[Rfam]
Nucleotides: 124
Base pairs, nucleotide, nucleotide: 003122005120006119007118008117009116010115017029018028019027031104032103033094034093035048036047037046038045043092044091051070052069053068074090075089076088077087078086096107097106098105
Number, partner (000 for none) and nucleotide at each position: 001000g002000g003122u004000a005120g006119u007118c008117u009116u010115c011000g012000g013000g014000g015000c016000a017029g018028g019027g020000u021000g022000a023000a024000a025000u026000u027019c028018c029017c030000u031104a032103c033094c034093g035048g036047c037046g038045g039000u040000a041000u042000a043092g044091u045038c046037c047036g048035c049000g050000a051070g052069c053068g054000g055000c056000u057000g058000u059000g060000g061000a062000u063000g064000c065000a066000g067000c068053u069052g070051u071000u072000g073000a074090a075089c076088u077087g078086g079000u080000g081000a082000a083000a084000u085000u086078c087077c088076a089075g090074u091044a092043c093034c094033g095000a096107c097106a098105g099000u100000a101000u102000a103032g104031u105098c106097u107096g108000g109000a110000u111000g112000a113000g114000a115010g116009a117008a118007g119006a120005u121000g122003g123000a124000c

A member of the RNA family "FMN riboswitch aptamer (RFN element)" from Geosporobacter ferrireducens, 124 nucleotides long. Taxonomically the source falls in Geosporobacter (Bacteria, Bacillati, Bacillota, Clostridia). A search with the family's covariance model found it, with a score of 118 bits.